Plastid-rpl16 group II-D1 intron: a 47-nucleotide RNA sequence from Protea cynaroides. The organism belongs to Protea, within Eukaryota. Plastid-rpl16 is a non-coding RNA (ncRNA) recognised in plastids. It was recognised in and intronic region of a ribosome rpl16 gene.

[Rfam]
RNA sequence: UAGAGCCUUUAGUCAAUAAAGACUGAGGAGAUUGACUCAGGAACAAA
Numbered sequence: 001u002a003g004a005g006c007c008u009u010u011a012g013u014c015a016a017u018a019a020a021g022a023c024u025g026a027g028g029a030g031a032u033u034g035a036c037u038c039a040g041g042a043a044c045a046a047a
Base pairs, nucleotide, nucleotide: 007041008040011037012036013035014034015033016032017031